[Rfam]
RNA sequence: CCCUGUAUCGAAAGUGAGCGUGGCGUCCUGUGGCCGCGCUCAUUGAUAGUACAGGAACAGGAAGCUGAGAGCCUUUCCCGUGUUUGAAGGAUGAUCAGUUCCUAUUGAACCCUGGCGCUCUCAGACA
Numbered sequence: 001c002c003c004u005g006u007a008u009c010g011a012a013a014g015u016g017a018g019c020g021u022g023g024c025g026u027c028c029u030g031u032g033g034c035c036g037c038g039c040u041c042a043u044u045g046a047u048a049g050u051a052c053a054g055g056a057a058c059a060g061g062a063a064g065c066u067g068a069g070a071g072c073c074u075u076u077c078c079c080g081u082g083u084u085u086g087a088a089g090g091a092u093g094a095u096c097a098g099u100u101c102c103u104a105u106u107g108a109a110c111c112c113u114g115g116c117g118c119u120c121u122c123a124g125a126c127a
Stems, first nucleotide, its partner, number of pairs: 002055007013044008022035003066123007082110005088103004
This 127-nucleotide sequence from Dicentrarchus labrax belongs to the Rfam family "Small nucleolar RNA SNORA71". The members of this family belong to the H/ACA class of snoRNAs which bind a number of proteins (including dyskerin, Gar1p and Nop10p) to form snoRNP complexes. This class of snoRNAs are thought to guide the sites of modification of uridines to pseudouridines by forming direct base pairing interactions with substrate RNAs. This family includes U71 (SNORA71), ACA39 (SNORA39) and ACA60 (SNORA60). Taxonomically the source falls in Dicentrarchus (Eukaryota, Vertebrata, Euteleostomi, Osteoglossocephalai). The match comes from Rfam's covariance-model search (88 bits). It is annotated as an H/ACA-box small nucleolar RNA.